[Rfam]
RNA sequence: CGCGGUCCUCGGUAGUGGCCCACGGGAAGCAAUCGCCCGUGCGCCUCGAUCGAAGACCGGG
Number, nucleotide and partner (000 for none) at each position: 001c061002g000003c059004g058005g057006u056007c055008c000009u053010c052011g051012g050013u049014a000015g000016u000017g045018g044019c043020c000021c041022a040023c039024g038025g037026g036027a000028a000029g033030c000031a000032a000033u029034c000035g000036c026037c025038c024039g023040u022041g021042c000043g019044c018045c017046u000047c000048g000049a013050u012051c011052g010053a009054a000055g007056a006057c005058c004059g003060g000061g001
RNA: Actino-pnp RNA